c-di-AMP riboswitch aptamer (ydaO/yuaA leader): a 150-nucleotide sequence from Aneurinibacillus sp. XH2.

RNA sequence: GGUACAAAAAAGCCGAAACUUCUUUAAAUAAAGAAGUGCAGGGGAUACUCUUUUGGGGUGAAUUGCUUAUCAAGAUACAUGGAUAAGCAUAGGGUAAACUCCUGAACCCGAACCCGGCAACUAACCUUGUAGGCUAUCAGGAGAGGAGAG
Dot-bracket structure: ..........((((...((((((((....))))))))((((((....(......)(((.....((((((((..........))))))))..((((..........))))...))).........)))))).))))...............
Numbered sequence: 001g002g003u004a005c006a007a008a009a010a011a012g013c014c015g016a017a018a019c020u021u022c023u024u025u026a027a028a029u030a031a032a033g034a035a036g037u038g039c040a041g042g043g044g045a046u047a048c049u050c051u052u053u054u055g056g057g058g059u060g061a062a063u064u065g066c067u068u069a070u071c072a073a074g075a076u077a078c079a080u081g082g083a084u085a086a087g088c089a090u091a092g093g094g095u096a097a098a099c100u101c102c103u104g105a106a107c108c109c110g111a112a113c114c115c116g117g118c119a120a121c122u123a124a125c126c127u128u129g130u131a132g133g134c135u136a137u138c139a140g141g142a143g144a145g146g147a148g149a150g
Stems, first nucleotide, its partner, number of pairs: 011135004018037008038130006048055001056115003064089008092109004
Annotation:
Taxonomically the source falls in Aneurinibacillus (Bacteria, Bacillati, Bacilli, Caryophanales). A search with the family's covariance model found it, with a score of 92 bits.